RNA sequence: ACAAGACGGUAAACUAGAAAUGCCGCUCUAAGCAGUAAUGUUUAGAUGAACACUCCGUGAAUUCGGUGGAACCCCAAACCAGCCUUAAAGGUGGAUGGUGGGCAAUACCGAGCCAAGCCUAAUGAAUUGGUGAUAUGUAAUUAGGAAGGUGUAACGAUCAGGUGGUGAGGAGCCAUACCGAUAACCCACCCACGAGCGCGGGGCAUCCAAAAGGGAUGAAGAUAUGAUCUGAACUUUAUGGAAACAUAAAG
Numbered sequence: 001a002c003a004a005g006a007c008g009g010u011a012a013a014c015u016a017g018a019a020a021u022g023c024c025g026c027u028c029u030a031a032g033c034a035g036u037a038a039u040g041u042u043u044a045g046a047u048g049a050a051c052a053c054u055c056c057g058u059g060a061a062u063u064c065g066g067u068g069g070a071a072c073c074c075c076a077a078a079c080c081a082g083c084c085u086u087a088a089a090g091g092u093g094g095a096u097g098g099u100g101g102g103c104a105a106u107a108c109c110g111a112g113c114c115a116a117g118c119c120u121a122a123u124g125a126a127u128u129g130g131u132g133a134u135a136u137g138u139a140a141u142u143a144g145g146a147a148g149g150u151g152u153a154a155c156g157a158u159c160a161g162g163u164g165g166u167g168a169g170g171a172g173c174c175a176u177a178c179c180g181a182u183a184a185c186c187c188a189c190c191c192a193c194g195a196g197c198g199c200g201g202g203g204c205a206u207c208c209a210a211a212a213g214g215g216a217u218g219a220a221g222a223u224a225u226g227a228u229c230u231g232a233a234c235u236u237u238a239u240g241g242a243a244a245c246a247u248a249a250a251g
Base pairs, nucleotide, nucleotide: 005027007025008024009023010022011021031042032041033040053203054202055201056200058198059197063111064110065109066108067107068106073102074101075100076099112150113149118144125138154230156229157228158227159226160225206216207215208214236249237248238247239246240245
Shown here is a 251-nucleotide RNA from Cerasibacillus terrae, a member of the family "Group I catalytic intron". Pairs were carried over by alignment from the consensus structure, which is taken from published work. Group I catalytic introns are large self-splicing ribozymes. They catalyse their own excision from mRNA, tRNA and rRNA precursors in a wide range of organisms. Gene Ontology term of the family: Group I intron splicing. The match comes from Rfam's covariance-model search (74 bits).